c-di-AMP riboswitch aptamer (ydaO/yuaA leader): a 131-nucleotide RNA sequence from Micromonospora globbae. Lineage of the source: Bacteria > Bacillati > Micromonosporales > Micromonosporaceae > Micromonospora. Gene Ontology terms of the family: regulation of gene expression and cyclic-di-AMP binding.
[Rfam]
RNA sequence: GCGGUGCCACCGCCCAAUCGCCACCCGGCGAGCCGGGAACCCAGGUACGUGGGGUGAAUCCGCGCCAGCGGUAGGGGCCACUUCCGCCCCGAACCCGUCAGCUAACCCGGUCGGCGGUCGACGGAAGGGAA
Numbered sequence: 001g002c003g004g005u006g007c008c009a010c011c012g013c014c015c016a017a018u019c020g021c022c023a024c025c026c027g028g029c030g031a032g033c034c035g036g037g038a039a040c041c042c043a044g045g046u047a048c049g050u051g052g053g054g055u056g057a058a059u060c061c062g063c064g065c066c067a068g069c070g071g072u073a074g075g076g077g078c079c080a081c082u083u084c085c086g087c088c089c090c091g092a093a094c095c096c097g098u099c100a101g102c103u104a105a106c107c108c109g110g111u112c113g114g115c116g117g118u119c120g121a122c123g124g125a126a127g128g129g130a131a
Stems, first nucleotide, its partner, number of pairs: 011116004018031003032111006042051002052096003060071004074090004